[Rfam]
RNA sequence: GAAAAUUUAAAGGGGAGCUCGUAGACGGGCUGAGAGGGAAUGAUCAAUUCCGACCCAUGACCUGAUUUGGAUAAUGCCAACGUAGGUAAAUACUGUAAUUUG
Numbered sequence: 001g002a003a004a005a006u007u008u009a010a011a012g013g014g015g016a017g018c019u020c021g022u023a024g025a026c027g028g029g030c031u032g033a034g035a036g037g038g039a040a041u042g043a044u045c046a047a048u049u050c051c052g053a054c055c056c057a058u059g060a061c062c063u064g065a066u067u068u069g070g071a072u073a074a075u076g077c078c079a080a081c082g083u084a085g086g087u088a089a090a091u092a093c094u095g096u097a098a099u100u101u102g
Base pairs, nucleotide, nucleotide: 007090008089012056013055014054017030018029019028020027021026037051038050039049040048041047061086062085063084064083067080068079069078070077
Dot-bracket structure: ......((...(((..(((((....)))))......(((((.....)))))..)))....((((..((((......))))..))))..))............
The family of this 102-nucleotide RNA sequence from Oribacterium sp. C9 is "TPP riboswitch aptamer (THI element)". Rfam links the family to the GO term thiamine pyrophosphate binding. The source organism's lineage runs through Bacteria, Bacillati, Lachnospirales, Lachnospiraceae and Oribacterium. Pairs were carried over by alignment from the consensus structure, which is taken from published work.